serC leader: a 53-nucleotide sequence from Ahrensia marina.
This family is a putative regulatory RNA structure that is found upstream of the serC-serA operon in some alpha-proteobacteria. The final stem of the structure overlaps the ribosome binding site of the serC reading frame.
Pairs were carried over by alignment from the consensus structure.
By type it is a cis-regulatory leader.
The source organism's lineage runs through Bacteria, Pseudomonadota, Alphaproteobacteria, Ahrensiaceae and Ahrensia.
RNA sequence: GGGCAGGCCACCUCUCCCUAACGAGAGGCUUACUAUCUGGAAGGAUAGACAGA
Numbered sequence: 001g002g003g004c005a006g007g008c009c010a011c012c013u014c015u016c017c018c019u020a021a022c023g024a025g026a027g028g029c030u031u032a033c034u035a036u037c038u039g040g041a042a043g044g045a046u047a048g049a050c051a052g053a
Stems, first nucleotide, its partner, number of pairs: 011028006033048006